[Rfam]
Record summary: Shown here is an 87-nucleotide sequence, a member of the family "DUF3800-VII RNA". The family's consensus secondary structure is taken from published work. The sequence is in the family's curated seed alignment.
RNA sequence: CGCAGGCAAGCGUGAGGUUUGUAGAGGUUGCUGGCAACAGCGACAGCCCGAACGGGUGGGAUCCUCGAACUCAGGGCCUGCAAGUUU
Numbered sequence: 001c002g003c004a005g006g007c008a009a010g011c012g013u014g015a016g017g018u019u020u021g022u023a024g025a026g027g028u029u030g031c032u033g034g035c036a037a038c039a040g041c042g043a044c045a046g047c048c049c050g051a052a053c054g055g056g057u058g059g060g061a062u063c064c065u066c067g068a069a070c071u072c073a074g075g076g077c078c079u080g081c082a083a084g085u086u087u
Base pairs, nucleotide, nucleotide: 002081003080004079005078006077007076011074013073014072015071016070022068024066025065026064027044028043029042030041031040032039033038047056048055049054